The family of this 318-nucleotide RNA sequence from Podilymbus podiceps is "7SK RNA". Rfam classes the family as a non-coding RNA gene. A reference for the family is Wassarman and Steitz (1991), "Structural analyses of the 7SK ribonucleoprotein (RNP), the most abundant human small RNP of unknown function", Mol Cell Biol. Rfam 15.1 lists 49,373 matches to the family in 668 species. A search with the family's covariance model found it, with a score of 272 bits.
RNA sequence: GGAUGUGAGGGCAAUCUGGCGGUGACAUCUAUCACCCCAUUGAUCACCAGGGUUGAUUCGGCUGAUCUGGCUGGCUGGGAGGGUGUCCCCUUCCUCCCUCACAGCUCCAUGUGUGUCCCUCCUGAAGCUGCACACUUGGUUGAAGAGGACGACCUUCCCCGAUAGAGAUGUACCAUCAAGGUCAAGGGUAUAUGGUAGCUGUGCUCCCUUGCUAGAACCUCCAAACAAGCUCAAGGUCCAUUUGUAGGAGGACGUAGGGUAGUCAAGUGUCUAUGACUGCAGAUGCAUCCAAAUGAGGCACUGCAUGUUUCUUAAAUU
Numbered sequence: 001g002g003a004u005g006u007g008a009g010g011g012c013a014a015u016c017u018g019g020c021g022g023u024g025a026c027a028u029c030u031a032u033c034a035c036c037c038c039a040u041u042g043a044u045c046a047c048c049a050g051g052g053u054u055g056a057u058u059c060g061g062c063u064g065a066u067c068u069g070g071c072u073g074g075c076u077g078g079g080a081g082g083g084u085g086u087c088c089c090c091u092u093c094c095u096c097c098c099u100c101a102c103a104g105c106u107c108c109a110u111g112u113g114u115g116u117c118c119c120u121c122c123u124g125a126a127g128c129u130g131c132a133c134a135c136u137u138g139g140u141u142g143a144a145g146a147g148g149a150c151g152a153c154c155u156u157c158c159c160c161g162a163u164a165g166a167g168a169u170g171u172a173c174c175a176u177c178a179a180g181g182u183c184a185a186g187g188g189u190a191u192a193u194g195g196u197a198g199c200u201g202u203g204c205u206c207c208c209u210u211g212c213u214a215g216a217a218c219c220u221c222c223a224a225a226c227a228a229g230c231u232c233a234a235g236g237u238c239c240a241u242u243u244g245u246a247g248g249a250g251g252a253c254g255u256a257g258g259g260u261a262g263u264c265a266a267g268u269g270u271c272u273a274u275g276a277c278u279g280c281a282g283a284u285g286c287a288u289c290c291a292a293a294u295g296a297g298g299c300a301c302u303g304c305a306u307g308u309u310u311c312u313u314a315a316a317u318u
Stems, first nucleotide, its partner, number of pairs: 001108003005102007014092001018090002024087007032079002035074002037070003042067004047061002117170001119167003122139004127135001140162003147158003198268003204262002207259006219250004225245005292318002296313003